Background:
This 102-nucleotide RNA sequence from Papio anubis belongs to the Rfam family "Y RNA". The family's consensus secondary structure is taken from published work. A search with the family's covariance model found it, with a score of 53 bits.
RNA sequence: GGCUGAUCUGAAUGCAGUGGUGUUCACAACUAAGUGAUCGAAACUAGUUACACAUUUCUUUGUUCCUUCUCCACUCCCACUGCUUCACAAAACUAGCCUUAA
Numbered sequence: 001g002g003c004u005g006a007u008c009u010g011a012a013u014g015c016a017g018u019g020g021u022g023u024u025c026a027c028a029a030c031u032a033a034g035u036g037a038u039c040g041a042a043a044c045u046a047g048u049u050a051c052a053c054a055u056u057u058c059u060u061u062g063u064u065c066c067u068u069c070u071c072c073a074c075u076c077c078c079a080c081u082g083c084u085u086c087a088c089a090a091a092a093c094u095a096g097c098c099u100u101a102a
Base pairs, nucleotide, nucleotide: 001098002097003096004095005094007092014086016081017080018079019078020077022076028064029063030062032060033059